RNA: mraW RNA
RNA sequence: UGUGAUCCCGUGUUCGAGACUCCCGUCCGUUUGCCCUGUGACACCUUCCCCGGUUCCAGGUCUGCCACACGGAAGGGAAUCUCGAAUCCGGGUCGCUAGAGG
Number, nucleotide and partner (000 for none) at each position: 001u000002g000003u000004g000005a000006u000007c000008c000009c000010g089011u000012g087013u086014u085015c084016g083017a000018g081019a080020c000021u078022c077023c076024c075025g000026u073027c072028c071029g070030u069031u067032u000033g065034c064035c060036c059037u058038g057039u000040g055041a054042c053043a000044c000045c000046u000047u000048c000049c000050c000051c000052g000053g042054u041055u040056c000057c038058a037059g036060g035061u000062c000063u000064g034065c033066c000067a031068c000069a030070c029071g028072g027073a026074a000075g024076g023077g022078a021079a000080u019081c018082u000083c016084g015085a014086a013087u012088c000089c010090g000091g000092g000093u000094c000095g000096c000097u000098a000099g000100a000101g000102g000